RNA: Small nucleolar RNA Z247
Organism: Aegilops tauschii
RNA sequence: AAGGUUGAUGAAGAAGAUGUCGUUUCUCACAUCCUCGCUGGACUCGAUGAGGAGUUCGACCCGGUGGUCUCGGCCAUGUGCUCCAGGGUCGAACCAGUCACCGUCCCGGAGCUGUACUCACAGCUGCUGAGCUUCGAGA
Numbered sequence: 001a002a003g004g005u006u007g008a009u010g011a012a013g014a015a016g017a018u019g020u021c022g023u024u025u026c027u028c029a030c031a032u033c034c035u036c037g038c039u040g041g042a043c044u045c046g047a048u049g050a051g052g053a054g055u056u057c058g059a060c061c062c063g064g065u066g067g068u069c070u071c072g073g074c075c076a077u078g079u080g081c082u083c084c085a086g087g088g089u090c091g092a093a094c095c096a097g098u099c100a101c102c103g104u105c106c107c108g109g110a111g112c113u114g115u116a117c118u119c120a121c122a123g124c125u126g127c128u129g130a131g132c133u134u135c136g137a138g139a
Base pairs, nucleotide, nucleotide: 005137006136007135008134086107087106088105090103
Dot-bracket structure: ....((((.............................................................................(((.(............).)))..........................))))..